[Rfam]
RNA sequence: UGCAGCCCAGUCAAAUUCGGUCCCUGUCCCCCCAUGGCAGGGACCGGCCACCGGCUGCCACAGUGACCUCCGUGCUCUGCAUGUCCCUGUCCCCUCCCGUGGGACCUGGGCAGACGGAUCCCCACGGACACAG
Numbered sequence: 001u002g003c004a005g006c007c008c009a010g011u012c013a014a015a016u017u018c019g020g021u022c023c024c025u026g027u028c029c030c031c032c033c034a035u036g037g038c039a040g041g042g043a044c045c046g047g048c049c050a051c052c053g054g055c056u057g058c059c060a061c062a063g064u065g066a067c068c069u070c071c072g073u074g075c076u077c078u079g080c081a082u083g084u085c086c087c088u089g090u091c092c093c094c095u096c097c098c099g100u101g102g103g104a105c106c107u108g109g110g111c112a113g114a115c116g117g118a119u120c121c122c123c124a125c126g127g128a129c130a131c132a133g
Stems, first nucleotide, its partner, number of pairs: 002058004018046011072125003084110003
Notes: The record is a 133-nucleotide RNA from Lanius ludovicianus, which matches "Small nucleolar RNA SNORA5" in Rfam. Taxonomically the source falls in Lanius (Eukaryota, Sarcopterygii, Dipnotetrapodomorpha, Sauropsida). ACA5 is a member of the H/ACA class of snoRNA that guide the sites of modification of uridines to pseudouridines. The base pairs follow the family's consensus structure, which was predicted with RNAfold. The family has 6 seed sequences and 2,226 matches in Rfam 15.1.